The family of this 266-nucleotide RNA from Clostridium sp. HMP27 is "Bacterial large signal recognition particle RNA". By type it is a non-coding RNA gene. The source organism's lineage runs through Bacteria, Bacillati, Bacillota, Clostridiaceae and Clostridium.

RNA sequence: UCGUGCUAGAUGGGGAGCUAGCGGUGCCCUGUAACCUGCAAUCCGCUACAGCAGGAUUGAAUUCCCACUAUAGGCUUUACUCUGUUGAGUCAGUAUGAUAAAAGUGGUGUUGAGAACUGGGUCCCAUGCAUCAGAAACUCAUGAAAUCCGUCAGGUCUGGAAGGAAGCAGCGGUAAGUGAUUAUUUCUGAGUGCCAUGGACAAACCUAAUUUGAGCUAACUAGAUUGGUACUAUCAGUAGAUUAAUUGUCGAUAGUGGGUGCACGA
Numbered sequence: 001u002c003g004u005g006c007u008a009g010a011u012g013g014g015g016a017g018c019u020a021g022c023g024g025u026g027c028c029c030u031g032u033a034a035c036c037u038g039c040a041a042u043c044c045g046c047u048a049c050a051g052c053a054g055g056a057u058u059g060a061a062u063u064c065c066c067a068c069u070a071u072a073g074g075c076u077u078u079a080c081u082c083u084g085u086u087g088a089g090u091c092a093g094u095a096u097g098a099u100a101a102a103a104g105u106g107g108u109g110u111u112g113a114g115a116a117c118u119g120g121g122u123c124c125c126a127u128g129c130a131u132c133a134g135a136a137a138c139u140c141a142u143g144a145a146a147u148c149c150g151u152c153a154g155g156u157c158u159g160g161a162a163g164g165a166a167g168c169a170g171c172g173g174u175a176a177g178u179g180a181u182u183a184u185u186u187c188u189g190a191g192u193g194c195c196a197u198g199g200a201c202a203a204a205c206c207u208a209a210u211u212u213g214a215g216c217u218a219a220c221u222a223g224a225u226u227g228g229u230a231c232u233a234u235c236a237g238u239a240g241a242u243u244a245a246u247u248g249u250c251g252a253u254a255g256u257g258g259g260u261g262c263a264c265g266a
Stems, first nucleotide, its partner, number of pairs: 001266006009058003012030004017025003035055005064259007073250003079243001081241008092232002096227004104220002106217003114212003118208005124199005129191001132189005137182001139180004148173004156165003